[Rfam]
RNA sequence: AAACUAAAUUCGUUAAAGCCUCAUAUAAUCUCAGGGAUACGGCCUGAAAGUUUCUACCGAACGACCGUAAAUCGUUCGACUAUGAGGACAGAUAGCUGUGCA
Numbered sequence: 001a002a003a004c005u006a007a008a009u010u011c012g013u014u015a016a017a018g019c020c021u022c023a024u025a026u027a028a029u030c031u032c033a034g035g036g037a038u039a040c041g042g043c044c045u046g047a048a049a050g051u052u053u054c055u056a057c058c059g060a061a062c063g064a065c066c067g068u069a070a071a072u073c074g075u076u077c078g079a080c081u082a083u084g085a086g087g088a089c090a091g092a093u094a095g096c097u098g099u100g101c102a
Base pairs, nucleotide, nucleotide: 019087020086021085022084023083024082025081029049031047032046033045034044035043058078059077060076061075062074063073064072
The record is a 102-nucleotide sequence from Aneurinibacillus sp. XH2, which matches "Purine riboswitch aptamer" in Rfam. A search with the family's covariance model found it, with a score of 88 bits. NCBI's taxonomy places the organism under Bacteria, Bacillati, Bacillota, Paenibacillaceae, Aneurinibacillus. Its family is annotated with purine nucleobase biosynthetic process in the Gene Ontology.